[Rfam]
Shown here is a 111-nucleotide RNA sequence from Crystallibacter crystallopoietes, a member of the family "SAM riboswitch aptamer (S box leader)". Rfam links the family to the GO term regulation of gene expression. The family's consensus secondary structure is taken from published work.
RNA sequence: UAGCCAUCCAGAGCGGCCGAGAGAUCUGGCUCGUCGACGCCGCAGCAACCAUCCACUGGCUCCCUUCAGGGAGACGGAACGGAACGGUGCUAAUGCCAGAACCGAUGGAGA
Dot-bracket structure: (..(((((....(((((...(((..[[[[)))......)))))((((.((.((...........................))...))))))...(]]]]...))))))..)